[Rfam]
Nucleotides: 199
Stems, first nucleotide, its partner, number of pairs: 008027003013022003051070006073087006117150002120147004130141004154192006161183002164180003
Number, partner (000 for none) and nucleotide at each position: 001000a002000u003000a004000c005000c006000u007000u008027u009026c010025u011000c012000u013022g014021c015020c016000u017000u018000u019000u020015g021014g022013c023000u024000a025010a026009g027008a028000u029000c030000a031000a032000g033000u034000g035000u036000a037000g038000u039000a040000u041000c042000u043000g044000u045000u046000g047000u048000u049000c050000u051070u052069a053068u054067u055066a056065g057000u058000u059000u060000a061000a062000u063000a064000u065056u066055u067054g068053a069052u070051a071000u072000a073087u074086g075085g076084g077083u078082c079000a080000u081000u082078g083077g084076u085075u086074c087073a088000c089000a090000c091000g092000a093000u094000a095000u096000u097000a098000a099000c100000u101000c102000a103000a104000u105000u106000u107000u108000u109000u110000a111000a112000g113000g114000g115000u116000u117150a118149g119000a120147g121146u122145c123144c124000a125000u126000c127000a128000a129000g130141g131140u132139a133138g134000c135000u136000u137000g138133c139132u140131a141130c142000c143000u144123g145122g146121g147120c148000a149118c150117u151000u152000g153000a154192g155191c156190g157189u158188u159187g160000c161183c162182u163000a164180g165179g166178c167000u168000u169000u170000g171000c172000a173000c174000u175000a176000c177000a178166g179165c180164c181000c182162a183161g184000g185000c186000c187159u188158g189157g190156c191155g192154c193000a194000c195000u196000c197000c198000a199000c

This 199-nucleotide sequence from Solanum commersonii belongs to the Rfam family "U2 spliceosomal RNA". Taxonomically the source falls in Solanum (Eukaryota, Embryophyta, Tracheophyta, Spermatophyta). Gene Ontology terms of the family: pre-mRNA branch point binding, mRNA branch site recognition and U2 snRNP. U2 is a small nuclear RNA (snRNA) component of the spliceosome (involved in pre-mRNA splicing).